[Rfam]
RNA sequence: ACCCACGCCGAGGGGUCCGGCCGAGGCCGGUGGAUUCGGCGAGCGGAUAAGCAGUGAGUGCCGCUUCACAUGAAAACCGCUGCAGCG
Numbered sequence: 001a002c003c004c005a006c007g008c009c010g011a012g013g014g015g016u017c018c019g020g021c022c023g024a025g026g027c028c029g030g031u032g033g034a035u036u037c038g039g040c041g042a043g044c045g046g047a048u049a050a051g052c053a054g055u056g057a058g059u060g061c062c063g064c065u066u067c068a069c070a071u072g073a074a075a076a077c078c079g080c081u082g083c084a085g086c087g
Stems, first nucleotide, its partner, number of pairs: 002014003007040005017030005042065005051083005
About this RNA:
Rfam assigns this 87-nucleotide sequence from Pseudoroseicyclus aestuarii to the family "Proteo-phage-1 RNA".